[Rfam]
RNA sequence: GGGCCGGCUAUAGCCCAGCGGUUCCUUCGGUGUUUGACAAGUAGCGUCGGGUUCCGUCGCCCCGCCAGGGGUUUGAGACCGCGGGCACUUCUGGCUCAUUU
Numbered sequence: 001g002g003g004c005c006g007g008c009u010a011u012a013g014c015c016c017a018g019c020g021g022u023u024c025c026u027u028c029g030g031u032g033u034u035u036g037a038c039a040a041g042u043a044g045c046g047u048c049g050g051g052u053u054c055c056g057u058c059g060c061c062c063c064g065c066c067a068g069g070g071g072u073u074u075g076a077g078a079c080c081g082c083g084g085g086c087a088c089u090u091c092u093g094g095c096u097c098a099u100u101u
Stems, first nucleotide, its partner, number of pairs: 002096006013086004018082004026077005
Dot-bracket structure: .((((((.....((((.((((....(((((..........................................))))).))))))))....)))))).....

The family of this 101-nucleotide RNA from Nyctibius bracteatus is "Vault RNA". It is annotated as a non-coding RNA gene. A reference for the family is Stadler et al. (2009), "Evolution of Vault RNAs", Mol Biol Evol. The family's consensus secondary structure is taken from published work. Taxonomically the source falls in Nyctibius (Eukaryota, Dipnotetrapodomorpha, Coelurosauria, Nyctibiiformes).